[Rfam]
RNA sequence: AAGCAAGACUCAGACUCCAAUAUAGCUGUUAAGUGCUGUGUUGUCAUUCCCCCUGCUCAAAUUAAAGUUGUUUCUUCACUAUACCCAUCUGCCAUUCUGGAGCAGCCAGGGAUGCUUGGUUACAUACAU
Number, nucleotide and partner (000 for none) at each position: 001a000002a000003g056004c055005a054006a000007g052008a000009c000010u000011c000012a000013g000014a000015c000016u000017c000018c043019a042020a041021u040022a039023u038024a037025g036026c035027u000028g000029u000030u000031a000032a000033g000034u000035g026036c025037u024038g023039u022040g021041u020042u019043g018044u000045c000046a000047u000048u000049c000050c000051c000052c007053c000054u005055g004056c003057u000058c000059a000060a000061a000062u000063u000064a000065a000066a000067g000068u000069u000070g000071u000072u000073u000074c000075u000076u000077c000078a000079c000080u000081a000082u000083a000084c110085c109086c000087a000088u000089c105090u104091g103092c102093c000094a000095u000096u000097c000098u000099g000100g000101a000102g092103c091104a090105g089106c000107c000108a000109g085110g084111g000112a000113u000114g000115c000116u000117u000118g000119g000120u000121u000122a000123c000124a000125u000126a000127c000128a000129u000
RNA: Small nucleolar RNA SNORA63
Organism: Chlorocebus sabaeus